Notes: Shown here is a 94-nucleotide RNA sequence from Eucalyptus grandis, a member of the family "Small nucleolar RNA U54". The family's consensus secondary structure was predicted with PFOLD. U54 is a C/D box small nucleolar RNA, which acts as a methylation guide for 18S ribosomal RNA in plants. A reference for the family is Chen et al. (2003), "The high diversity of snoRNAs in plants: identification and comparative study of 120 snoRNA genes from Oryza sativa", Nucleic Acids Res. By type it is a C/D-box small nucleolar RNA. NCBI's taxonomy places the organism under Eukaryota, Magnoliopsida, Gunneridae, malvids, Eucalyptus. Its Rfam clan is "U54 clan".

RNA sequence: GGCUCUGUGAUUAUAUGCCCUUUUCUUGGGCGAUAUACGCUAUUCCGAUCAAAUAACCAUGAGCCGAAAAUCCAAUGUGUUUCUUAUGAGAGCC
Numbered sequence: 001g002g003c004u005c006u007g008u009g010a011u012u013a014u015a016u017g018c019c020c021u022u023u024u025c026u027u028g029g030g031c032g033a034u035a036u037a038c039g040c041u042a043u044u045c046c047g048a049u050c051a052a053a054u055a056a057c058c059a060u061g062a063g064c065c066g067a068a069a070a071u072c073c074a075a076u077g078u079g080u081u082u083c084u085u086a087u088g089a090g091a092g093c094c
Stems, first nucleotide, its partner, number of pairs: 001094005